The record is a 110-nucleotide sequence from Caldicoprobacter faecalis, which matches "TPP riboswitch aptamer (THI element)" in Rfam. The family's consensus secondary structure is taken from published work.

[Rfam]
RNA sequence: AAAUAUCAAACGGGGAGCUGAAGCAAUUCGGCUGAGAGGGAGUUGUAUGACUCCGACCCGAUGAACCUGAUCUGGGUAAUGCCAGCGUAGGGAACGAAUUGUGGAAGGGG
Numbered sequence: 001a002a003a004u005a006u007c008a009a010a011c012g013g014g015g016a017g018c019u020g021a022a023g024c025a026a027u028u029c030g031g032c033u034g035a036g037a038g039g040g041a042g043u044u045g046u047a048u049g050a051c052u053c054c055g056a057c058c059c060g061a062u063g064a065a066c067c068u069g070a071u072c073u074g075g076g077u078a079a080u081g082c083c084a085g086c087g088u089a090g091g092g093a094a095c096g097a098a099u100u101g102u103g104g105a106a107g108g109g110g
Stems, first nucleotide, its partner, number of pairs: 006098001011060004017032005039054005066091004072085004
NCBI's taxonomy places the organism under Bacteria, Bacillota, Caldicoprobacterales, Caldicoprobacteraceae, Caldicoprobacter.